[Rfam]
RNA: Glutamine-II riboswitch aptamer
RNA sequence: UAACGUUCACCUCUUUUCGGAGAGGCGCAGUUCGAUUCAGGCCAAGGAACGGGGACCUGAA
Numbered sequence: 001u002a003a004c005g006u007u008c009a010c011c012u013c014u015u016u017u018c019g020g021a022g023a024g025g026c027g028c029a030g031u032u033c034g035a036u037u038c039a040g041g042c043c044a045a046g047g048a049a050c051g052g053g054g055a056c057c058u059g060a061a
Base pairs, nucleotide, nucleotide: 004051005050006049007048008047010025011024012023013022014021036061037060038059039058040057041056042054043053